[Rfam]
RNA sequence: GGUUGCAAGCUCAAAGCCACAACAGAAGCUCUCAUGAUGUGGCUCUGUCAGAUUUCAAAGAAUCUAUGCAUUCUGCC
Dot-bracket structure: ..............[[[[....(((((((.........))]]]].....((((((....)))))).....)))))..
Numbered sequence: 001g002g003u004u005g006c007a008a009g010c011u012c013a014a015a016g017c018c019a020c021a022a023c024a025g026a027a028g029c030u031c032u033c034a035u036g037a038u039g040u041g042g043c044u045c046u047g048u049c050a051g052a053u054u055u056c057a058a059a060g061a062a063u064c065u066a067u068g069c070a071u072u073c074u075g076c077c
Stems, first nucleotide, its partner, number of pairs: 015044004023075005028040002050065006